SAM riboswitch aptamer (S box leader): a 108-nucleotide RNA from Neobacillus bataviensis.

RNA sequence: CUCUUAUCAAGAGUGGCAGAGGGACUGGCCCGAUGACGCCCAGCAACCGUUCCGGAAAGGAAUUGGUGCUAAAUCCUGCAAACAAAUUUUUUGUUUGAAAGAUAAGAG
Numbered sequence: 001c002u003c004u005u006a007u008c009a010a011g012a013g014u015g016g017c018a019g020a021g022g023g024a025c026u027g028g029c030c031c032g033a034u035g036a037c038g039c040c041c042a043g044c045a046a047c048c049g050u051u052c053c054g055g056a057a058a059g060g061a062a063u064u065g066g067u068g069c070u071a072a073a074u075c076c077u078g079c080a081a082a083c084a085a086a087u088u089u090u091u092u093g094u095u096u097g098a099a100a101g102a103u104a105a106g107a108g
Base pairs, nucleotide, nucleotide: 001108002107003106004105005104006103007102008101013041015040016039017038021031022030023029025078027076028075042070043069044068045067047066048065049063050062051061052060074100079097080096081095082094083093084092